[Rfam]
The family of this 73-nucleotide RNA sequence from Crocodylus porosus is "Mammalian CPEB3 ribozyme". The match comes from Rfam's covariance-model search (42 bits). NCBI's taxonomy places the organism under Eukaryota, Sauria, Archosauria, Longirostres, Crocodylus. The literature on the family includes a 2006 paper in Science by Salehi-Ashtiani et al., "A genomewide search for ribozymes reveals an HDV-like sequence in the human CPEB3 gene".
RNA sequence: ACAAGUUCAAAGCCACAGCAGAAGUGCUCACAGCACAGCCCUGUCAAAUUCCAAUAAAUCUGCAAAUUCUGCU
Numbered sequence: 001a002c003a004a005g006u007u008c009a010a011a012g013c014c015a016c017a018g019c020a021g022a023a024g025u026g027c028u029c030a031c032a033g034c035a036c037a038g039c040c041c042u043g044u045c046a047a048a049u050u051c052c053a054a055u056a057a058a059u060c061u062g063c064a065a066a067u068u069c070u071g072c073u
Stems, first nucleotide, its partner, number of pairs: 012039002017073007024036003045062002048059003